[Rfam]
RNA: Histone 3' UTR stem-loop
RNA sequence: CCAAAGGCUCUUUUAAGAGCCACUAAGCGCACAAUGAGAAGACCUGU
Numbered sequence: 001c002c003a004a005a006g007g008c009u010c011u012u013u014u015a016a017g018a019g020c021c022a023c024u025a026a027g028c029g030c031a032c033a034a035u036g037a038g039a040a041g042a043c044c045u046g047u
Base pairs, nucleotide, nucleotide: 006021007020008019009018010017011016